Fluoride riboswitch aptamer (crcB RNA motif): a 78-nucleotide RNA sequence from Pandoraea pnomenusa.

[Rfam]
RNA sequence: CUGCUGCACGGAGAUGGCAUACCUCCGGCGUUCCUGCGCGAACCGCUCCUCCCCGGGGCUGAUGAUGCCUGCAAGAUC
Numbered sequence: 001c002u003g004c005u006g007c008a009c010g011g012a013g014a015u016g017g018c019a020u021a022c023c024u025c026c027g028g029c030g031u032u033c034c035u036g037c038g039c040g041a042a043c044c045g046c047u048c049c050u051c052c053c054c055g056g057g058g059c060u061g062a063u064g065a066u067g068c069c070u071g072c073a074a075g076a077u078c
Stems, first nucleotide, its partner, number of pairs: 010026004016069005045059004
A search with the family's covariance model found it, with a score of 42 bits. Gene Ontology terms of the family: positive regulation of gene expression and response to fluoride.